Rfam assigns this 77-nucleotide RNA from Parnassius apollo to the family "Mammalian CPEB3 ribozyme". From the family's description: The mammalian CPEB3 ribozyme is a self cleaving RNA located in the second intron of the CPEB3 gene which belongs to a family of genes regulating messenger RNA polyadenylation. The match comes from Rfam's covariance-model search (38 bits). Pairs were carried over by alignment from the consensus structure, which is taken from published work. Taxonomically the source falls in Parnassius (Eukaryota, Opisthokonta, Metazoa, Eumetabola). A reference for the family is Teixeira et al. (2004), "Autocatalytic RNA cleavage in the human beta-globin pre-mRNA promotes transcription termination", Nature.

RNA sequence: AAAGAAUGUCAAGGGGGUCAUUGUAGAAGCGUGUUCGUCCGAUCCCUGCCAGCUCUUUUCAGGGCUGCAAUUUUACA
Numbered sequence: 001a002a003a004g005a006a007u008g009u010c011a012a013g014g015g016g017g018u019c020a021u022u023g024u025a026g027a028a029g030c031g032u033g034u035u036c037g038u039c040c041g042a043u044c045c046c047u048g049c050c051a052g053c054u055c056u057u058u059u060c061a062g063g064g065c066u067g068c069a070a071u072u073u074u075a076c077a
Stems, first nucleotide, its partner, number of pairs: 014046006022077007029040001031039001050067007